[Rfam]
RNA sequence: CAACCACGAGACGAAGUGAGUGGGUCAUGGUCGAUGCUUAAUUGUGCGACUAGACCCAGAAAAGUCCCCGGGCCCAUUACUGUAGAGUGCAGCUCGGAAAUGUGUGAUCUUCGAGUCGAAGGGGUUAACAUGCGCUUGUGCAAGUGGGCUGAGACAUGCGUGGAGCCUUUAUUAACCCCUUCGCCGAAGCAAAUUGGCCAAUUCAACACAGUUAUUCACUUGGUCCCUUGUGGAUUAACAGAACGGGGCUUACGAUCUCGUGGUU
Numbered sequence: 001c002a003a004c005c006a007c008g009a010g011a012c013g014a015a016g017u018g019a020g021u022g023g024g025u026c027a028u029g030g031u032c033g034a035u036g037c038u039u040a041a042u043u044g045u046g047c048g049a050c051u052a053g054a055c056c057c058a059g060a061a062a063a064g065u066c067c068c069c070g071g072g073c074c075c076a077u078u079a080c081u082g083u084a085g086a087g088u089g090c091a092g093c094u095c096g097g098a099a100a101u102g103u104g105u106g107a108u109c110u111u112c113g114a115g116u117c118g119a120a121g122g123g124g125u126u127a128a129c130a131u132g133c134g135c136u137u138g139u140g141c142a143a144g145u146g147g148g149c150u151g152a153g154a155c156a157u158g159c160g161u162g163g164a165g166c167c168u169u170u171a172u173u174a175a176c177c178c179c180u181u182c183g184c185c186g187a188a189g190c191a192a193a194u195u196g197g198c199c200a201a202u203u204c205a206a207c208a209c210a211g212u213u214a215u216u217c218a219c220u221u222g223g224u225c226c227c228u229u230g231u232g233g234a235u236u237a238a239c240a241g242a243a244c245g246g247g248g249c250u251u252a253c254g255a256u257c258u259c260g261u262g263g264u265u
Stems, first nucleotide, its partner, number of pairs: 002265010014221006022057004035048003039044001062251003066248004081091004092116006118182009146168004156161001223235004
RNase MRP: a 265-nucleotide RNA from Corchorus olitorius. Rfam's curators write: RNase MRP is an enzymatically active ribonucleoprotein with two distinct roles in eukaryotes. Its family is annotated with ribonuclease MRP complex, ribonuclease MRP activity and rRNA processing in the Gene Ontology. The match comes from Rfam's covariance-model search (62 bits).